[Rfam]
About this RNA
This 69-nucleotide sequence belongs to the Rfam family "narK RNA".
RNA sequence: GGCGCGUCCGUUGCUUGGCCAUGCCCACGAGCGGUCAAUGUCGAUCGCUCCUCACGACAAAGGCGCCGU
Numbered sequence: 001g002g003c004g005c006g007u008c009c010g011u012u013g014c015u016u017g018g019c020c021a022u023g024c025c026c027a028c029g030a031g032c033g034g035u036c037a038a039u040g041u042c043g044a045u046c047g048c049u050c051c052u053c054a055c056g057a058c059a060a061a062g063g064c065g066c067c068g069u
Stems, first nucleotide, its partner, number of pairs: 030049007

Annotation: The match comes from Rfam's covariance-model search (57 bits).